[Rfam]
Background:
The record is a 95-nucleotide RNA from Phascolarctobacterium succinatutens, which matches "NiCo (Nickel/Cobalt) riboswitch aptamer" in Rfam. It is one of the family's seed sequences. The base pairs follow the family's consensus structure, which is taken from published work. Rfam links the family to the GO terms metal ion homeostasis and cobalt ion binding. Its Rfam clan is "NiCo_riboswitches". On this family, see Furukawa et al., Mol Cell 2015: "Bacterial riboswitches cooperatively bind Ni(2+) or Co(2+) ions and control expression of heavy metal transporters".
RNA sequence: ACAGUACAAACUGAUCAGGCGGUAAACCUUCUUCCGGGUUUUUGCAGCCGGGCCCUCUGGGCAGCAGACCUUGACGCAACGUCUGCGGGACAGUU
Numbered sequence: 001a002c003a004g005u006a007c008a009a010a011c012u013g014a015u016c017a018g019g020c021g022g023u024a025a026a027c028c029u030u031c032u033u034c035c036g037g038g039u040u041u042u043u044g045c046a047g048c049c050g051g052g053c054c055c056u057c058u059g060g061g062c063a064g065c066a067g068a069c070c071u072u073g074a075c076g077c078a079a080c081g082u083c084u085g086c087g088g089g090a091c092a093g094u095u
Stems, first nucleotide, its partner, number of pairs: 010094004016089001018049003022043001024041004052062004064086006